[Rfam]
RNA sequence: CAGACGGUGGCGAUCUAUUGCAAAUCCGUUUAAGAACGGGGGCUCCCCAUGCGGCGAGCGGUCAAAUAUUGAUCAAUACUCAGCUCACUGAUCUGCGGUACUCCCCCCAAGUACCCGUCAGGCGGAACGGCGUGGGACGUCCGUUCCGGUUCUACUCCUAAUGGUCUUUGACCCGGAUUCCUCCCCCAGAAGCCGG
Numbered sequence: 001c002a003g004a005c006g007g008u009g010g011c012g013a014u015c016u017a018u019u020g021c022a023a024a025u026c027c028g029u030u031u032a033a034g035a036a037c038g039g040g041g042g043c044u045c046c047c048c049a050u051g052c053g054g055c056g057a058g059c060g061g062u063c064a065a066a067u068a069u070u071g072a073u074c075a076a077u078a079c080u081c082a083g084c085u086c087a088c089u090g091a092u093c094u095g096c097g098g099u100a101c102u103c104c105c106c107c108c109a110a111g112u113a114c115c116c117g118u119c120a121g122g123c124g125g126a127a128c129g130g131c132g133u134g135g136g137a138c139g140u141c142c143g144u145u146c147c148g149g150u151u152c153u154a155c156u157c158c159u160a161a162u163g164g165u166c167u168u169u170g171a172c173c174c175g176g177a178u179u180c181c182u183c184c185c186c187c188a189g190a191a192g193c194c195g196g
Base pairs, nucleotide, nucleotide: 039167040166041165043163088121089120090119094117095116097115099113100112101111123148124147125146126145127144128143129142130141131139173196174195175194176193178191179190180189
RNA: RgsA sRNA